[Rfam]
RNA sequence: GGAAGUGAUUGCGAUCUGGUGAUCGUCGCGGUCUUCAAAACCGUUGAGGCGCGUUAACCCGUGCCUGGUGGGUUCGAUUCCCAUCCACUUCC
Numbered sequence: 001g002g003a004a005g006u007g008a009u010u011g012c013g014a015u016c017u018g019g020u021g022a023u024c025g026u027c028g029c030g031g032u033c034u035u036c037a038a039a040a041c042c043g044u045u046g047a048g049g050c051g052c053g054u055u056a057a058c059c060c061g062u063g064c065c066u067g068g069u070g071g072g073u074u075c076g077a078u079u080c081c082c083a084u085c086c087a088c089u090u091c092c
Base pairs, nucleotide, nucleotide: 001092002091003090004089005088006087007086008084011026012025013024014023015022016021028044029043030042031041032040047066048065049064050063051062069083070082071081072080
A member of the RNA family "Selenocysteine transfer RNA" from Fuerstiella marisgermanici, 92 nucleotides long. The family's consensus secondary structure is taken from published work. The match comes from Rfam's covariance-model search (80 bits).